[Rfam]
About this RNA:
Shown here is a 114-nucleotide RNA from Allosphingosinicella deserti, a member of the family "SAM-I/IV (S-adenosyl methionine) riboswitch aptamer". Its Rfam clan is "SAM clan". The source organism's lineage runs through Bacteria, Pseudomonadati, Alphaproteobacteria, Sphingomonadales and Allosphingosinicella. The family's consensus secondary structure is taken from published work.
RNA sequence: UCCGUGCAUCAAGAGUGGGCCUUCACGGCCCACGCCAACCUGCCCUCCCGGGCAAGGUGGCGGUCCCAGAUUUUCGGGGACGAUGCGGCCGAGCCGGCAACGAAGCGGGUCUCC
Numbered sequence: 001u002c003c004g005u006g007c008a009u010c011a012a013g014a015g016u017g018g019g020c021c022u023u024c025a026c027g028g029c030c031c032a033c034g035c036c037a038a039c040c041u042g043c044c045c046u047c048c049c050g051g052g053c054a055a056g057g058u059g060g061c062g063g064u065c066c067c068a069g070a071u072u073u074u075c076g077g078g079g080a081c082g083a084u085g086c087g088g089c090c091g092a093g094c095c096g097g098c099a100a101c102g103a104a105g106c107g108g109g110u111c112u113c114c
Stems, first nucleotide, its partner, number of pairs: 006086005015033006034061003039057003042053003047109004088098004